[Rfam]
RNA sequence: UUUGGCCCAUGGGGAAAGAAGCCCCACAACUUCCCCAUGGCCCAA
Numbered sequence: 001u002u003u004g005g006c007c008c009a010u011g012g013g014g015a016a017a018g019a020a021g022c023c024c025c026a027c028a029a030c031u032u033c034c035c036c037a038u039g040g041c042c043c044a045a
Stems, first nucleotide, its partner, number of pairs: 002044001004042002008039009018030001021027001
Dot-bracket structure: .(.((..(((((((((.(..(.....)..)))))))))).)).).
The family of this 45-nucleotide RNA sequence from Lentivirus simimdef is "ribosomal frameshift site". The family's consensus secondary structure is taken from published work. The organism belongs to Lentivirus simimdef, within Viruses. It is annotated as a frameshift element. It is one of the family's seed sequences.